This 79-nucleotide RNA from Alligator sinensis belongs to the Rfam family "Mammalian CPEB3 ribozyme".
RNA sequence: AGAGGUCACAAGUUUGAGGUCAUAGGAAAGUGCUCAUGGCAUGGCCCUGUCAGAUCCCAAUGAAUCUGCAAAUUCUGCU
Numbered sequence: 001a002g003a004g005g006u007c008a009c010a011a012g013u014u015u016g017a018g019g020u021c022a023u024a025g026g027a028a029a030g031u032g033c034u035c036a037u038g039g040c041a042u043g044g045c046c047c048u049g050u051c052a053g054a055u056c057c058c059a060a061u062g063a064a065u066c067u068g069c070a071a072a073u074u075c076u077g078c079u
Base pairs, nucleotide, nucleotide: 016047018046019045020044021043024079025078027076028074029073030042031041032040051068052067053066054065055064057062
Gene Ontology term of the family: RNA nuclease activity. A search with the family's covariance model found it, with a score of 43 bits.